[Rfam]
The family of this 88-nucleotide RNA sequence is "Plastid-rps12 3UTR RNA". Rfam classes the family as a cis-regulatory element. Rfam describes the family as follows. Plastid rpl20 is a non-coding RNA (ncRNA) recognised in plastids. Rfam's curators put it in the seed alignment. Rfam 15.1 lists 1,710 matches to the family in 1,426 species.
RNA sequence: GGUUUCACUUGGUGGAAACCCAAUCAGCUCGAUUUAAGCUGAGAAGUAAUUUCCCAUUGGUAGAAAAUGCUAUCCAUUAAGCGGGAAA
Dot-bracket structure: ........((((.......))))............................((((((.(((((......))))).)).....))))..